[Rfam]
RNA sequence: UUGAAUGUUUUCUAGGGUUCCGCGAUUUCUAAAUCGGCUGGUCCGAGAGAAAACUCACAGCCUAUAGGUUGUGUCACGGAGGGAUAAAAGCCUGGGAGAU
Numbered sequence: 001u002u003g004a005a006u007g008u009u010u011u012c013u014a015g016g017g018u019u020c021c022g023c024g025a026u027u028u029c030u031a032a033a034u035c036g037g038c039u040g041g042u043c044c045g046a047g048a049g050a051a052a053a054c055u056c057a058c059a060g061c062c063u064a065u066a067g068g069u070u071g072u073g074u075c076a077c078g079g080a081g082g083g084a085u086a087a088a089a090g091c092c093u094g095g096g097a098g099a100u
Stems, first nucleotide, its partner, number of pairs: 007054006015044002020041002022038001023036005056073007075095001077098001081093003
The record is a 100-nucleotide RNA from Paenibacillus antarcticus, which matches "Guanidine-I riboswitch aptamer" in Rfam. A reference for the family is Nelson et al. (2017), "Metabolism of Free Guanidine in Bacteria Is Regulated by a Widespread Riboswitch Class", Mol Cell. NCBI's taxonomy places the organism under Bacteria, Bacillati, Bacilli, Paenibacillaceae, Paenibacillus. It scores 85 bits against the family's covariance model. The pairing is the family consensus, mapped onto this sequence.